RNA: c-di-GMP-I riboswitch aptamer
Organism: Clostridium sp. BL8
RNA sequence: UUCGUUUAUGGGCAAAGCUAUAGAAAUGUAGUGACGCAAAGCCAUGGGUCUUCAUUAAGUUAUAAAACUAAUAAGAUUGCCAGGUUGCUAUU
Numbered sequence: 001u002u003c004g005u006u007u008a009u010g011g012g013c014a015a016a017g018c019u020a021u022a023g024a025a026a027u028g029u030a031g032u033g034a035c036g037c038a039a040a041g042c043c044a045u046g047g048g049u050c051u052u053c054a055u056u057a058a059g060u061u062a063u064a065a066a067a068c069u070a071a072u073a074a075g076a077u078u079g080c081c082a083g084g085u086u087g088c089u090a091u092u
Base pairs, nucleotide, nucleotide: 012037013036017032018031019030020029021028022027040086041085042084043083045082046081047080048077049076050075055071056070057069